About this RNA: This 35-nucleotide sequence from an Olavius algarvensis Gamma 1 endosymbiont belongs to the Rfam family "CRISPR RNA direct repeat element". It scores 42 bits against the family's covariance model. Lineage of the source: Bacteria > Pseudomonadati > Pseudomonadota > Gammaproteobacteria. Rfam links the family to the GO term defense response. The base pairs follow the family's consensus structure, which was predicted with WAR.

RNA sequence: UUAUUCCGCGGCCAAUGCCGCGGCCUCAUUGAAGC
Dot-bracket structure: .....(((((((....)))))))............